[Rfam]
RNA sequence: UCUAGAACUCAAGAUAUGGGCUGAAAACUGAACAGUGUCUGGGCUGCAAGAUAGAUUUCGACUUCUAUUGUUGCUACCAUUUGAACUCGAAAAUGACACUUUUAAAUCUUGGACUCUUCAUGAAAGUUUUAGACUUAUGUCUUAGCUUUCCAUA
Numbered sequence: 001u002c003u004a005g006a007a008c009u010c011a012a013g014a015u016a017u018g019g020g021c022u023g024a025a026a027a028c029u030g031a032a033c034a035g036u037g038u039c040u041g042g043g044c045u046g047c048a049a050g051a052u053a054g055a056u057u058u059c060g061a062c063u064u065c066u067a068u069u070g071u072u073g074c075u076a077c078c079a080u081u082u083g084a085a086c087u088c089g090a091a092a093a094u095g096a097c098a099c100u101u102u103u104a105a106a107u108c109u110u111g112g113a114c115u116c117u118u119c120a121u122g123a124a125a126g127u128u129u130u131a132g133a134c135u136u137a138u139g140u141c142u143u144a145g146c147u148u149u150c151c152a153u154a
Stems, first nucleotide, its partner, number of pairs: 003152001005150003008145002011143010021132005027127003035121003041117003045113001048110005054103002060097001063095001068090002070086003